[Rfam]
Nucleotides: 082
Base pairs, nucleotide, nucleotide: 003080004079005078006077007076009074010073011072012071013070017066018065020063021062022061023060024059025058026057028056029055030054
Number, partner (000 for none) and nucleotide at each position: 001000u002000c003080c004079g005078g006077u007076c008000c009074u010073c011072g012071g013070u014000a015000g016000u017066g018065g019000c020063u021062c022061a023060c024059g025058g026057a027000a028056c029055g030054g031000c032000c033000g034000c035000g036000c037000g038000u039000c040000g041000a042000g043000c044000g045000c046000a047000g048000g049000c050000c051000c052000c053000c054030u055029c056028g057026u058025c059024c060023g061022u062021g063020g064000a065018c066017c067000u068000c069000g070013a071012u072011c073010g074009a075000a076007g077006a078005c079004c080003g081000a082000c